RNA sequence: UCUUCAUUUCGCGUCCUUUCUCGCCGGUCAGAGUGGCGAUAGAGCACGCGAAAUGAGGAGA
Numbered sequence: 001u002c003u004u005c006a007u008u009u010c011g012c013g014u015c016c017u018u019u020c021u022c023g024c025c026g027g028u029c030a031g032a033g034u035g036g037c038g039a040u041a042g043a044g045c046a047c048g049c050g051a052a053a054u055g056a057g058g059a060g061a
Base pairs, nucleotide, nucleotide: 001059002058003057004056005055006054007053010050012048013047014046016044017043019041021039022038
The family of this 61-nucleotide sequence from Pristionchus pacificus is "mir-8364 microRNA precursor family".